TPP riboswitch aptamer (THI element): a 109-nucleotide RNA sequence from Krasilnikovia cinnamomea. A search with the family's covariance model found it, with a score of 66 bits. The base pairs follow the family's consensus structure, which is taken from published work.
RNA sequence: GAACAACCUCACGGGAGUCCGGUGUACCGGGCUGAGAGGGGGGCUGCAGCCCCCGACCGUCGAACCUGAUCCGGAUCAUGCCGGCGCAGGGAGGAGUGAGUUGUGGGCU
Numbered sequence: 001g002a003a004c005a006a007c008c009u010c011a012c013g014g015g016a017g018u019c020c021g022g023u024g025u026a027c028c029g030g031g032c033u034g035a036g037a038g039g040g041g042g043g044c045u046g047c048a049g050c051c052c053c054c055g056a057c058c059g060u061c062g063a064a065c066c067u068g069a070u071c072c073g074g075a076u077c078a079u080g081c082c083g084g085c086g087c088a089g090g091g092a093g094g095a096g097u098g099a100g101u102u103g104u105g106g107g108c109u
Stems, first nucleotide, its partner, number of pairs: 006097002009094002011060004017032005039054005065090004071084004